[Rfam]
RNA: glmS glucosamine-6-phosphate activated ribozyme aptamer
Organism: Halobacillus sp. BBL2006
RNA sequence: UUUUAUAAUAAAGCGCCAGGGCUGUGUUUGGUGAAAAGCACAGUUGACGAGGUGGAGGUUCAUCGAGCGUUCGGCGGAUGCCUCCCGGUUGUCACACUUCAACCGCAGGUUCAAAUGUAAACCAAAGAGGCGACUCUUUGUCCAAAUCAUUUGAAUAAAGUGACC
Numbered sequence: 001u002u003u004u005a006u007a008a009u010a011a012a013g014c015g016c017c018a019g020g021g022c023u024g025u026g027u028u029u030g031g032u033g034a035a036a037a038g039c040a041c042a043g044u045u046g047a048c049g050a051g052g053u054g055g056a057g058g059u060u061c062a063u064c065g066a067g068c069g070u071u072c073g074g075c076g077g078a079u080g081c082c083u084c085c086c087g088g089u090u091g092u093c094a095c096a097c098u099u100c101a102a103c104c105g106c107a108g109g110u111u112c113a114a115a116u117g118u119a120a121a122c123c124a125a126a127g128a129g130g131c132g133a134c135u136c137u138u139u140g141u142c143c144a145a146a147u148c149a150u151u152u153g154a155a156u157a158a159a160g161u162g163a164c165c
Stems, first nucleotide, its partner, number of pairs: 020045008029036001054085005063074004086105006110155007123140007